[Rfam]
RNA sequence: UAAAAUCUUCAGGGCAGGGUGCAAAUCCCUACCGGCGGUACAGCCCGCGAGCCGAAAGGUUGAUCCGGUGGCAUUCCGGAGCCGACAGUAUAGUCUGGAUGGAAGAAGAUGACG
Numbered sequence: 001u002a003a004a005a006u007c008u009u010c011a012g013g014g015c016a017g018g019g020u021g022c023a024a025a026u027c028c029c030u031a032c033c034g035g036c037g038g039u040a041c042a043g044c045c046c047g048c049g050a051g052c053c054g055a056a057a058g059g060u061u062g063a064u065c066c067g068g069u070g071g072c073a074u075u076c077c078g079g080a081g082c083c084g085a086c087a088g089u090a091u092a093g094u095c096u097g098g099a100u101g102g103a104a105g106a107a108g109a110u111g112a113c114g
Stems, first nucleotide, its partner, number of pairs: 005110006017029003031094002033084002035048004043082002051060003064080005086097003
Dot-bracket structure: ....((((((......(((.......))).[[((((((....[[))))..(((....)))...(((((.......)))))]])).(((....]]))).......))))))....

A member of the RNA family "FMN riboswitch aptamer (RFN element)" from bacterium D16-54, 114 nucleotides long. The literature on the family includes a 2002 paper in Nucleic Acids Res by Vitreschak et al., "Regulation of riboflavin biosynthesis and transport genes in bacteria by transcriptional and translational attenuation".